Shown here is a 69-nucleotide RNA from Chryseobacterium koreense, a member of the family "DUF805 RNA".
The organism belongs to Chryseobacterium koreense, within Bacteria.
It is annotated as a cis-regulatory element.
[Rfam]
RNA sequence: UAAAAAUGGAGACCAGCUACCAUUGCAAAAAACGGGGCGAAACCGAAAAGCCAAAUGAGUAGGAAACUA
Numbered sequence: 001u002a003a004a005a006a007u008g009g010a011g012a013c014c015a016g017c018u019a020c021c022a023u024u025g026c027a028a029a030a031a032a033c034g035g036g037g038c039g040a041a042a043c044c045g046a047a048a049a050g051c052c053a054a055a056u057g058a059g060u061a062g063g064a065a066a067c068u069a
Base pairs, nucleotide, nucleotide: 006023007022008021009020036052037051038050043063044062